[Rfam]
RNA sequence: UGACCAGGGGGCCGGGAUGUUCGAGGCGAUUCAGGCCUUGAGCGACCCAGGGGUACAGGGGGUACCUCCGCAACGGCGGACCGGGUCAGGGUGGAA
Numbered sequence: 001u002g003a004c005c006a007g008g009g010g011g012c013c014g015g016g017a018u019g020u021u022c023g024a025g026g027c028g029a030u031u032c033a034g035g036c037c038u039u040g041a042g043c044g045a046c047c048c049a050g051g052g053g054u055a056c057a058g059g060g061g062g063u064a065c066c067u068c069c070g071c072a073a074c075g076g077c078g079g080a081c082c083g084g085g086u087c088a089g090g091g092u093g094g095a096a
Stems, first nucleotide, its partner, number of pairs: 001088005010082002013079001014048003018044001020042008050068007
Rfam assigns this 96-nucleotide RNA sequence from Pseudomonas sp. ATCC 13867 to the family "ivy-DE RNA". The sequence is in the family's curated seed alignment. The organism belongs to Pseudomonas, within Bacteria.